[Rfam]
RNA sequence: CGCACACACUCACCCGUACACGGCAGGAGCGGGGGACCCACAGGCACAAUCGCCUGCUCCGGUCUCCGGAACAGGCUAGGGGUAAAGCCGUGCUUCGGCACGACCGGGCAUCUCCAGUCCGCACCCGACAGCUCACCUCGUAGGCGCCGGAGAGGAAUUCG
Numbered sequence: 001c002g003c004a005c006a007c008a009c010u011c012a013c014c015c016g017u018a019c020a021c022g023g024c025a026g027g028a029g030c031g032g033g034g035g036a037c038c039c040a041c042a043g044g045c046a047c048a049a050u051c052g053c054c055u056g057c058u059c060c061g062g063u064c065u066c067c068g069g070a071a072c073a074g075g076c077u078a079g080g081g082g083u084a085a086a087g088c089c090g091u092g093c094u095u096c097g098g099c100a101c102g103a104c105c106g107g108g109c110a111u112c113u114c115c116a117g118u119c120c121g122c123a124c125c126c127g128a129c130a131g132c133u134c135a136c137c138u139c140g141u142a143g144g145c146g147c148c149g150g151a152g153a154g155g156a157a158u159u160c161g
Stems, first nucleotide, its partner, number of pairs: 001146003009027002029141006039079001080126003089102003106120004

Notes: This 161-nucleotide RNA from Streptomyces sp. NL15-2K belongs to the Rfam family "c-di-AMP riboswitch aptamer (ydaO/yuaA leader)". From the family's description: This family represents a conserved RNA structure found upstream of the ydaO and yuaA genes in Bacillus subtilis and related genes in other bacteria. Lineage of the source: Bacteria > Bacillati > Actinomycetes > Kitasatosporales > Streptomyces. The base pairs follow the family's consensus structure.